[Rfam]
RNA sequence: AGAACAGGCCUUUCAGGCAUCCUCUCCCAAAACUUUCCAAGGGCUGGUCUUCGGACCGGCCCUUUUUUUGUGGGCUA
Numbered sequence: 001a002g003a004a005c006a007g008g009c010c011u012u013u014c015a016g017g018c019a020u021c022c023u024c025u026c027c028c029a030a031a032a033c034u035u036u037c038c039a040a041g042g043g044c045u046g047g048u049c050u051u052c053g054g055a056c057c058g059g060c061c062c063u064u065u066u067u068u069u070g071u072g073g074g075c076u077a
Stems, first nucleotide, its partner, number of pairs: 008018004041062009
Dot-bracket structure: .......((((...))))......................(((((((((....)))))))))...............